Rfam assigns this 95-nucleotide sequence from Enterobacter sp. 638 to the family "Tryptophan operon leader". A reference for the family is Kolter and Yanofsky (1982), "Attenuation in amino acid biosynthetic operons", Annu Rev Genet. At least 6 amino acid operons are known to be regulated by attenuation.
RNA sequence: CACGGUUGGUGGCGCACUUCCUGAAUAUCGGGCAGUGUCAUUCGUGUGCGUUACGAAAACAGAUACCUGGCCCGCGACUAUGCGGGCUUUUUUAU
Numbered sequence: 001c002a003c004g005g006u007u008g009g010u011g012g013c014g015c016a017c018u019u020c021c022u023g024a025a026u027a028u029c030g031g032g033c034a035g036u037g038u039c040a041u042u043c044g045u046g047u048g049c050g051u052u053a054c055g056a057a058a059a060c061a062g063a064u065a066c067c068u069g070g071c072c073c074g075c076g077a078c079u080a081u082g083c084g085g086g087c088u089u090u091u092u093u094a095u
Stems, first nucleotide, its partner, number of pairs: 009041004015037004020032004069088008